[Rfam]
RNA: Plastid-clpP 5UTR RNA
Nucleotides: 068
Base pairs, nucleotide, nucleotide: 003022004021008017009016010015044067045066051060052059053058
Number, partner (000 for none) and nucleotide at each position: 001000a002000a003022u004021u005000a006000a007000g008017u009016u010015u011000a012000u013000a014000g015010g016009a017008a018000g019000a020000a021004a022003g023000a024000g025000a026000a027000a028000g029000a030000a031000a032000u033000c034000u035000a036000u037000u038000u039000u040000a041000u042000a043000c044067c045066c046000g047000a048000u049000a050000a051060g052059u053058a054000g055000c056000a057000a058053u059052a060051c061000g062000c063000a064000a065000u066045g067044g068000a